[Rfam]
RNA sequence: GAGUGUACGGGUGUGGCGAGCCUAAGGGGUUCAACCCCGGAGGCGUAGGGAAACCGACAAGCCCGCAGCCCUUUUGGGCGAGGGGCGGGGUCUUUAAGGGCCCGGAGUCACACCCGUACGACCCGAAGCCGGGCGAUCUAGGCCGGGGCAGGGUGAAGCCCCUCACCAGAGGGGUGGAGGCCCGCAGGGGUGUUGCCGUGCAAAGCACUCCUCUGACCCCGGUCUAGGGGUGAAAGGCCAAUCGAGCCCGGCGUUAGCUGGUU
Numbered sequence: 001g002a003g004u005g006u007a008c009g010g011g012u013g014u015g016g017c018g019a020g021c022c023u024a025a026g027g028g029g030u031u032c033a034a035c036c037c038c039g040g041a042g043g044c045g046u047a048g049g050g051a052a053a054c055c056g057a058c059a060a061g062c063c064c065g066c067a068g069c070c071c072u073u074u075u076g077g078g079c080g081a082g083g084g085g086c087g088g089g090g091u092c093u094u095u096a097a098g099g100g101c102c103c104g105g106a107g108u109c110a111c112a113c114c115c116g117u118a119c120g121a122c123c124c125g126a127a128g129c130c131g132g133g134c135g136a137u138c139u140a141g142g143c144c145g146g147g148g149c150a151g152g153g154u155g156a157a158g159c160c161c162c163u164c165a166c167c168a169g170a171g172g173g174g175u176g177g178a179g180g181c182c183c184g185c186a187g188g189g190g191u192g193u194u195g196c197c198g199u200g201c202a203a204a205g206c207a208c209u210c211c212u213c214u215g216a217c218c219c220c221g222g223u224c225u226a227g228g229g230g231u232g233a234a235a236g237g238c239c240a241a242u243c244g245a246g247c248c249c250g251g252c253g254u255u256a257g258c259u260g261g262u263u
Base pairs, nucleotide, nucleotide: 005119006118007117008116009115010114011113012112013111014110015109016108017107020044021043022042023041026038027037028036029035048055049054061086062085063084064083068079069078070077071076089102090101091100092099122261123260125258129251130250131249132248133247134246138227139226140225141224142223143222144221145220146219147218148217149215151183152182153181154180158175159174160173161172162171163170164169187212188211189210190209192208193207195206196205229239230238231237
A member of the RNA family "Archaeal large subunit ribosomal RNA" from Methanotorris igneus, 263 nucleotides of a longer RNA. Rfam's curators put it in the seed alignment. NCBI's taxonomy places the organism under Archaea, Methanococcales, Methanocaldococcaceae, Methanotorris, Methanotorris igneus.